[Rfam]
Nucleotides: 084
Stems, first nucleotide, its partner, number of pairs: 014070007025062008037051003
Number, partner (000 for none) and nucleotide at each position: 001000g002000c003000u004000c005000c006000c007000c008000c009000u010000c011000a012000c013000u014070a015069a016068u017067c018066c019065u020064u021000g022000c023000u024000a025062c026061u027060u028059g029058g030057g031056u032055g033000a034000g035000a036000a037051u038050g039049c040000u041000u042000u043000c044000u045000g046000a047000a048000u049039g050038c051037a052000g053000u054000g055032c056031a057030c058029c059028u060027g061026g062025g063000c064020a065019a066018g067017g068016g069015u070014u071000c072000a073000a074000u075000g076000a077000g078000g079000g080000u081000g082000a083000g084000c
mir-500 microRNA precursor family: an 84-nucleotide RNA from Dipodomys ordii.
Gene Ontology terms of the family: RISC complex and miRNA-mediated post-transcriptional gene silencing.
The family has 38 seed sequences and 402 matches in Rfam 15.1.
The base pairs follow the family's consensus structure, which was predicted with RNAalifold.